[Rfam]
The family of this 134-nucleotide RNA from Esox lucius is "Small nucleolar RNA SNORA13". Lineage of the source: Eukaryota > Gnathostomata > Osteoglossocephalai > Esocidae > Esox. The family has 50 seed sequences and 1,034 matches in Rfam 15.1. The family is grouped with related families in Rfam's "SNORA13 clan". Rfam links the family to the GO terms RNA processing and nucleolus. Rfam's curators write: ACA13 is a member of the H/ACA class of snoRNA that guide the sites of modification of uridines to pseudouridines.
RNA sequence: UGCCUUUGUGUUGCCCAUUCAUUGUCCCCCGGGUGAAUGGGUGUCAAACAAGGCAUACAGUAACCUUGUGGUUGUCUACAUUUGUGAGGAGUCUCCACAGACUCCUUUCAAUAACUACAGCUGCAAGAACAUGU
Dot-bracket structure: .(((((..((.((((((((((((........)))))))))))).))...)))))..........((((..(((((....(.((((((...((........)).....)).)))).))))))..)))).......
Numbered sequence: 001u002g003c004c005u006u007u008g009u010g011u012u013g014c015c016c017a018u019u020c021a022u023u024g025u026c027c028c029c030c031g032g033g034u035g036a037a038u039g040g041g042u043g044u045c046a047a048a049c050a051a052g053g054c055a056u057a058c059a060g061u062a063a064c065c066u067u068g069u070g071g072u073u074g075u076c077u078a079c080a081u082u083u084g085u086g087a088g089g090a091g092u093c094u095c096c097a098c099a100g101a102c103u104c105c106u107u108u109c110a111a112u113a114a115c116u117a118c119a120g121c122u123g124c125a126a127g128a129a130c131a132u133g134u
Stems, first nucleotide, its partner, number of pairs: 002054005009046002012043012065127004071121005080116001082114004086109002091102002